Overview: Small nucleolar RNA SNORA44: a 120-nucleotide sequence from Dipodomys ordii. A search with the family's covariance model found it, with a score of 93 bits. ACA44 is a member of the H/ACA class of snoRNA that guide the sites of modification of uridines to pseudouridines. Taxonomically the source falls in Dipodomys (Eukaryota, Bilateria, Mammalia, Boreoeutheria). For this family Rfam cites "RNomics: an experimental approach that identifies 201 candidates for novel, small, non-messenger RNAs in mouse" (Huttenhofer et al., EMBO J, 2001). The family has 27 seed sequences and 1,056 matches in Rfam 15.1.
RNA sequence: CAGCAUGUUUUCAAGGGCUGUGGCUGAUGGUGGCCAUGGGAUCUCCAACUGCACGUUAGAACAGGUUGGAGAGACUUUGACUUUGACUAUCUGUAGUUGCCACUCACCCUUCCUAUAAUA
Dot-bracket structure: ..........((...((((((........))))))..))............................((((.(.........(.((...)).)..............).)))).......